[Rfam]
RNA sequence: AACACGCUCCUUAGAUCCACCUCUGGAGGGCAGUCCUGUGCUGGUGCUGUUGUCUCUGAGUGCUCCGGCUUGGAAGCCCUCAACAGCUUUUUGGCUGUACAGUUGGAGGUGCUUGAGUCAUUGGCGUGUGAGAGCAGUCUACCUGCCUCCCAGCACCUCUGCUGCACUGGCAACCCUCAGUUCCACUGCCGGGACCCUACCAGUGCAGCUUUGCUGGGGGAUGGACAAU
Numbered sequence: 001a002a003c004a005c006g007c008u009c010c011u012u013a014g015a016u017c018c019a020c021c022u023c024u025g026g027a028g029g030g031c032a033g034u035c036c037u038g039u040g041c042u043g044g045u046g047c048u049g050u051u052g053u054c055u056c057u058g059a060g061u062g063c064u065c066c067g068g069c070u071u072g073g074a075a076g077c078c079c080u081c082a083a084c085a086g087c088u089u090u091u092u093g094g095c096u097g098u099a100c101a102g103u104u105g106g107a108g109g110u111g112c113u114u115g116a117g118u119c120a121u122u123g124g125c126g127u128g129u130g131a132g133a134g135c136a137g138u139c140u141a142c143c144u145g146c147c148u149c150c151c152a153g154c155a156c157c158u159c160u161g162c163u164g165c166a167c168u169g170g171c172a173a174c175c176c177u178c179a180g181u182u183c184c185a186c187u188g189c190c191g192g193g194a195c196c197c198u199a200c201c202a203g204u205g206c207a208g209c210u211u212u213g214c215u216g217g218g219g220g221a222u223g224g225a226c227a228a229u
Stems, first nucleotide, its partner, number of pairs: 002129007010117005018111008026081005034074003040069005047062001083098006143224003147220001150217001152215004163207008
Small nucleolar RNA SNORA53: a 229-nucleotide RNA sequence from Salvelinus namaycush.
The source organism's lineage runs through Eukaryota, Bilateria, Vertebrata, Salmoniformes and Salvelinus.
Rfam links the family to the GO terms nucleolus and RNA processing.
The match comes from Rfam's covariance-model search (102 bits).
Rfam describes the family as follows. The snoRNA ACA53 belongs to the H/ACA family of pseudouridylation guide snoRNAs.